[Rfam]
RNA sequence: GGUCUGUGAUGAAUAGUAAAAGGUCUGAUUGUCCCAAGGCUUGUUCUUCUAUGGCCUCUGCUCCCAGCAGUUUCUCCCCAGUCAUGGCACAGCAAUGGUGUGACUGUGGGAGUGCUUGCUGACAGCAUGUGAUGUGCUCAGUUCAUGUUAACCUGAAGUACUGGAGACAUGACUGUGCUCAGCAUCCCACAGACCAAUUUAAAGGAGUUGGGGUUUUGGCCUGUUACACCUGGACGUGUGAUCUGACUUUUCUGCUGAGACC
Numbered sequence: 001g002g003u004c005u006g007u008g009a010u011g012a013a014u015a016g017u018a019a020a021a022g023g024u025c026u027g028a029u030u031g032u033c034c035c036a037a038g039g040c041u042u043g044u045u046c047u048u049c050u051a052u053g054g055c056c057u058c059u060g061c062u063c064c065c066a067g068c069a070g071u072u073u074c075u076c077c078c079c080a081g082u083c084a085u086g087g088c089a090c091a092g093c094a095a096u097g098g099u100g101u102g103a104c105u106g107u108g109g110g111a112g113u114g115c116u117u118g119c120u121g122a123c124a125g126c127a128u129g130u131g132a133u134g135u136g137c138u139c140a141g142u143u144c145a146u147g148u149u150a151a152c153c154u155g156a157a158g159u160a161c162u163g164g165a166g167a168c169a170u171g172a173c174u175g176u177g178c179u180c181a182g183c184a185u186c187c188c189a190c191a192g193a194c195c196a197a198u199u200u201a202a203a204g205g206a207g208u209u210g211g212g213g214u215u216u217u218g219g220c221c222u223g224u225u226a227c228a229c230c231u232g233g234a235c236g237u238g239u240g241a242u243c244u245g246a247c248u249u250u251u252c253u254g255c256u257g258a259g260a261c262c
Stems, first nucleotide, its partner, number of pairs: 001262004037244003041240001048219002051216001061207004065121006079106008129187001131186005144171006152164002
RNA: Small Cajal body specific RNA 6
Organism: Coturnix japonica